This 45-nucleotide RNA sequence from Prosthecobacter vanneervenii belongs to the Rfam family "Acido-Lenti-1 RNA". The source organism's lineage runs through Bacteria, Pseudomonadati, Verrucomicrobiota, Verrucomicrobiia and Prosthecobacter. By type it is a small RNA. The base pairs follow the family's consensus structure, which is taken from published work.

[Rfam]
RNA sequence: CCCAGGGCGUUGCCCUGGGCUGCGAUAGUUCGCACCUUUGGUGCU
Numbered sequence: 001c002c003c004a005g006g007g008c009g010u011u012g013c014c015c016u017g018g019g020c021u022g023c024g025a026u027a028g029u030u031c032g033c034a035c036c037u038u039u040g041g042u043g044c045u
Stems, first nucleotide, its partner, number of pairs: 001019008032044005
Dot-bracket structure: ((((((((...))))))))............(((((...))))).